The record is a 54-nucleotide sequence from Salvelinus namaycush, which matches "UnaL2 LINE 3' element" in Rfam. The organism belongs to Salvelinus, within Eukaryota. A search with the family's covariance model found it, with a score of 59 bits. By type it is a cis-regulatory element.
RNA sequence: UGUAAUUGCUCCUGUAAAUCACUCUGGAUAAGAGUGUCUGCUAAAUGACAUAGA
Numbered sequence: 001u002g003u004a005a006u007u008g009c010u011c012c013u014g015u016a017a018a019u020c021a022c023u024c025u026g027g028a029u030a031a032g033a034g035u036g037u038c039u040g041c042u043a044a045a046u047g048a049c050a051u052a053g054a
Stems, first nucleotide, its partner, number of pairs: 013043001014041003020036006